[Rfam]
RNA sequence: AGCUGCCAUAACAGCCGUAGCAGAAGCGCUCAUGUCGCGGCCUGGUCAGAUUCUAAUAAUCUGCAGGUUCUGCU
Numbered sequence: 001a002g003c004u005g006c007c008a009u010a011a012c013a014g015c016c017g018u019a020g021c022a023g024a025a026g027c028g029c030u031c032a033u034g035u036c037g038c039g040g041c042c043u044g045g046u047c048a049g050a051u052u053c054u055a056a057u058a059a060u061c062u063g064c065a066g067g068u069u070c071u072g073c074u
Stems, first nucleotide, its partner, number of pairs: 011043001014041003019074007026038003047063006
Description
A member of the RNA family "Mammalian CPEB3 ribozyme" from Alligator sinensis, 74 nucleotides long. The source organism's lineage runs through Eukaryota, Vertebrata, Sauropsida, Archelosauria and Alligator. The base pairs follow the family's consensus structure, which is taken from published work. A search with the family's covariance model found it, with a score of 41 bits. Gene Ontology term of the family: RNA nuclease activity.